[Rfam]
RNA sequence: AUAAAAAAAUACCCGCAGGGCAUUCCCCGCGGGGUCAAUGCACUUGAUGUGCAUCAACGAAAUGGGAGAGGAGAAACCGGAGGAAGAGCUUAUGGGGAAACGUAAGUCUUCUCCGCGG
Number, nucleotide and partner (000 for none) at each position: 001a000002u000003a000004a000005a000006a000007a000008a000009a000010u000011a000012c033013c032014c031015g030016c029017a000018g027019g026020g000021c000022a000023u000024u000025c000026c019027c018028c000029g016030c015031g014032g013033g012034g000035u066036c065037a000038a063039u062040g000041c000042a000043c000044u057045u056046g055047a054048u053049g000050u000051g000052c000053a048054u047055c046056a045057a044058c000059g000060a000061a000062a039063u038064g000065g036066g035067a000068g000069a000070g000071g000072a000073g000074a000075a000076a000077c000078c115079g114080g113081a112082g000083g111084a110085a109086g108087a000088g107089c106090u105091u104092a103093u000094g000095g000096g000097g000098a000099a000100a000101c000102g000103u092104a091105a090106g089107u088108c086109u085110u084111c083112u081113c080114c079115g078116c000117g000118g000
Shown here is a 118-nucleotide RNA from Vulcanibacillus modesticaldus, a member of the family "ylbH leader". A reference for the family is Barrick et al. (2004), "New RNA motifs suggest an expanded scope for riboswitches in bacterial genetic control", Proc Natl Acad Sci U S A. About the family: This family is a putative regulatory RNA structure that is found upstream of the ylbH gene in B. subtilis and related low GC Gram-positive bacteria. The pairing is the family consensus, mapped onto this sequence.